[Rfam]
Nucleotides: 103
Stems, first nucleotide, its partner, number of pairs: 039096005054084003058080004
Number, partner (000 for none) and nucleotide at each position: 001000a002000u003000g004000c005000c006000u007000u008000u009000u010000g011000g012000g013000a014000u015000g016000a017000a018000g019000u020000g021000g022000u023000c024000c025000c026000u027000g028000a029000u030000a031000u032000u033000u034000g035000a036000u037000a038000a039096u040095c041094a042093u043092c044000u045000c046000c047000u048000c049000a050000c051000u052000u053000u054084g055083u056082c057000u058080g059079c060078u061077a062000a063000a064000u065000c066000a067000g068000u069000u070000c071000u072000a073000u074000g075000u076000u077061u078060a079059g080058c081000u082056g083055a084054u085000c086000a087000u088000u089000a090000a091000a092043g093042a094041u095040g096039a097000g098000a099000u100000a101000u102000u103000u
The family of this 103-nucleotide RNA from Eragrostis curvula is "Small nucleolar RNA snoR99". The source organism's lineage runs through Eukaryota, Streptophyta, Spermatophyta, Eragrostidinae and Eragrostis.